[Rfam]
RNA: Small nucleolar RNA U109
Organism: Pipistrellus kuhlii
RNA sequence: CUGUAUGGCUUUUAAUAGUAAAGCAGAAGCUAUGUUAAGCUGAUUAUAUGAAUGUCUGAGGGCAUACCAUGCUACAUGAAAGGAGUUAUCAGGGCUGCCAACCUUACAGGAGAGGUUGAGAAGUAUAUUUCUCCUACAUAA
Numbered sequence: 001c002u003g004u005a006u007g008g009c010u011u012u013u014a015a016u017a018g019u020a021a022a023g024c025a026g027a028a029g030c031u032a033u034g035u036u037a038a039g040c041u042g043a044u045u046a047u048a049u050g051a052a053u054g055u056c057u058g059a060g061g062g063c064a065u066a067c068c069a070u071g072c073u074a075c076a077u078g079a080a081a082g083g084a085g086u087u088a089u090c091a092g093g094g095c096u097g098c099c100a101a102c103c104u105u106a107c108a109g110g111a112g113a114g115g116u117u118g119a120g121a122a123g124u125a126u127a128u129u130u131c132u133c134c135u136a137c138a139u140a141a
Stems, first nucleotide, its partner, number of pairs: 003072006082134004094124002098120001099118007